[Rfam]
RNA: Glycine riboswitch aptamer
RNA sequence: CUGACACGCGCGGGAGAGACCCUGGACCGAUUCGUCGGGAAGGGGCGCCGAAGGAGCAACCGCCCCGGAAUCUCUCAGGCAAAAGGACCGCGCAGCGUCU
Numbered sequence: 001c002u003g004a005c006a007c008g009c010g011c012g013g014g015a016g017a018g019a020c021c022c023u024g025g026a027c028c029g030a031u032u033c034g035u036c037g038g039g040a041a042g043g044g045g046c047g048c049c050g051a052a053g054g055a056g057c058a059a060c061c062g063c064c065c066c067g068g069a070a071u072c073u074c075u076c077a078g079g080c081a082a083a084a085g086g087a088c089c090g091c092g093c094a095g096c097g098u099c100u
Stems, first nucleotide, its partner, number of pairs: 008093006020045004047080003050076002054074003060068002